Source information: The family of this 73-nucleotide RNA from Alligator mississippiensis is "Mammalian CPEB3 ribozyme". On this family, see Salehi-Ashtiani et al., Science 2006: "A genomewide search for ribozymes reveals an HDV-like sequence in the human CPEB3 gene". The match comes from Rfam's covariance-model search (42 bits). The organism belongs to Alligator, within Eukaryota. The family has 14 seed sequences and 5,706 matches in Rfam 15.1.
RNA sequence: UGACAGUGGCAGGGCAUAGCAGAAGCGGUCAUGGUGCAGCCUGUUGGAUUCCAAAGAAUCUGCAAAUUCUGUU
Numbered sequence: 001u002g003a004c005a006g007u008g009g010c011a012g013g014g015c016a017u018a019g020c021a022g023a024a025g026c027g028g029u030c031a032u033g034g035u036g037c038a039g040c041c042u043g044u045u046g047g048a049u050u051c052c053a054a055a056g057a058a059u060c061u062g063c064a065a066a067u068u069c070u071g072u073u
Stems, first nucleotide, its partner, number of pairs: 013041002018073007025037003045062007